[Rfam]
RNA sequence: GCCGGUUCAGUCCGACCCCCCGGGGCUGGACCUCCAGCGACCCCCGCCCCUCCCCCCUGGCGGGGGUCGCUCUAU
Number, nucleotide and partner (000 for none) at each position: 001g000002c000003c000004g032005g031006u030007u029008c028009a027010g026011u025012c024013c023014g000015a000016c000017c000018c000019c000020c000021c000022g000023g013024g012025g011026c010027u009028g008029g007030a006031c005032c004033u000034c000035c000036a071037g070038c069039g068040a067041c066042c065043c064044c063045c062046g061047c060048c059049c000050c000051u000052c000053c000054c000055c000056c000057c000058u000059g048060g047061c046062g045063g044064g043065g042066g041067u040068c039069g038070c037071u036072c000073u000074a000075u000
Rfam assigns this 75-nucleotide RNA from Amycolatopsis sp. YIM 10 to the family "6C RNA". On this family, see Weinberg et al., Nucleic Acids Res 2007: "Identification of 22 candidate structured RNAs in bacteria using the CMfinder comparative genomics pipeline". A search with the family's covariance model found it, with a score of 66 bits. Rfam classes the family as a cis-regulatory element. NCBI's taxonomy places the organism under Bacteria, Actinomycetota, Actinomycetes, Pseudonocardiales, Amycolatopsis. The base pairs follow the family's consensus structure, which is taken from published work.